Description: The family of this 472-nucleotide part of an RNA from Gasterosteus aculeatus is "Eukaryotic large subunit ribosomal RNA".
[Rfam]
RNA sequence: GGUAGUAGCAAAUAUUCAAACGAGAGCUUUGAAGGCCGAAGUGGAGAAGGGUUCCAUGUGAACAGCAGUUGAACAUGGGUCAGUCGGUCCUAAGAGAUGGGCGAACGCCGUUCGGAAGGGCGGGGCGAUGGCCUACGUCGCCCCCGGCAAAUCGAAAGGGAGCUGGGUUCAGAUUCCCGGACCUGGAGUGGCGGAGACAGGCGCCGCGAGGCGCCCAGUGCGGCGACGCAAACGAUUCCGGAGAAGCUGGCGGGAGCCCCGGGAAGAGUUCUCUUUUCUUUGUGAAGGGCAGGGCGCCCUGGAAUGGGUUCGCCCCGAGAGAGGGGCCCGCGCCCUGGAAAGCGUCGCGCCUCUGGCGGCGUCCGGUGAGCUCUCGUCGGCCCUUGAAAAUCCGGAGGAGAGGGUGUAAGUCUCGCGCCAGGCCGUACCCAUAUCCGCAGCAGGUCUCCAAGGUGAACAGCCUCUGGCAUGU
Number, nucleotide and partner (000 for none) at each position: 001g000002g000003u000004a000005g000006u000007a000008g000009c000010a000011a000012a000013u000014a000015u033016u032017c031018a030019a029020a028021c000022g000023a000024g000025a000026g000027c000028u020029u019030u018031g017032a016033a015034g470035g468036c467037c466038g000039a000040a000041g000042u000043g449044g448045a447046g446047a000048a000049g429050g428051g000052u000053u000054c078055c077056a076057u075058g074059u073060g000061a000062a000063c071064a070065g000066c000067a000068g000069u000070u064071g063072a000073a059074c058075a057076u056077g055078g054079g000080u000081c000082a000083g000084u000085c425086g424087g423088u000089c159090c158091u000092a000093a000094g153095a152096g112097a111098u110099g000100g109101g108102c107103g000104a000105a000106c000107g102108c101109c100110g098111u097112u096113c000114g000115g000116a000117a000118g000119g145120g144121c000122g000123g000124g000125g000126c000127g000128a000129u000130g000131g000132c000133c000134u000135a000136c000137g000138u000139c000140g000141c000142c000143c000144c120145c119146g000147g000148c000149a000150a000151a000152u095153c094154g000155a000156a000157a000158g090159g089160g000161a000162g000163c180164u179165g178166g177167g176168u000169u000170c000171a000172g000173a000174u000175u000176c167177c166178c165179g164180g163181a000182c000183c421184u420185g419186g418187a000188g000189u000190g000191g000192c000193g000194g000195a000196g000197a000198c000199a000200g000201g000202c000203g000204c000205c000206g000207c415208g414209a413210g412211g411212c000213g000214c000215c000216c000217a000218g000219u230220g229221c228222g227223g000224c000225g000226a000227c222228g221229c220230a219231a000232a000233c000234g000235a000236u000237u396238c395239c394240g393241g392242a391243g000244a000245a000246g381247c380248u379249g378250g000251c376252g375253g374254g373255a372256g371257c370258c000259c366260c365261g364262g000263g281264a280265a279266g278267a277268g000269u000270u000271c000272u000273c000274u000275u000276u000277u267278c266279u265280u264281u263282g000283u000284g000285a000286a336287g335288g334289g333290c332291a000292g000293g000294g000295c000296g000297c325298c324299c323300u322301g000302g000303a000304a000305u317306g316307g315308g314309u000310u000311c000312g000313c000314c308315c307316c306317g305318a000319g000320a000321g000322a300323g299324g298325g297326g000327c000328c000329c000330g000331c000332g290333c289334c288335c287336u286337g000338g000339a000340a000341a000342g000343c361344g360345u359346c358347g357348c356349g000350c000351c000352u000353c000354u000355g000356g348357c347358g346359g345360c344361g343362u000363c000364c261365g260366g259367u000368g000369a000370g257371c256372u255373c254374u253375c252376g251377u000378c249379g248380g247381c246382c000383c000384u000385u000386g000387a000388a000389a000390a000391u242392c241393c240394g239395g238396a237397g000398g000399a000400g000401a000402g000403g000404g000405u000406g000407u000408a000409a000410g000411u211412c210413u209414c208415g207416c000417g000418c186419c185420a184421g183422g000423c087424c086425g085426u000427a000428c050429c049430c000431a000432u000433a000434u000435c444436c443437g000438c000439a000440g000441c000442a000443g436444g435445u000446c046447u045448c044449c043450a000451a463452g462453g461454u460455g000456a000457a000458c000459a000460g454461c453462c452463u451464c000465u000466g037467g036468c035469a000470u034471g000472u000
The base pairs follow the family's consensus structure, which is taken from published work. Clan: LSU clan.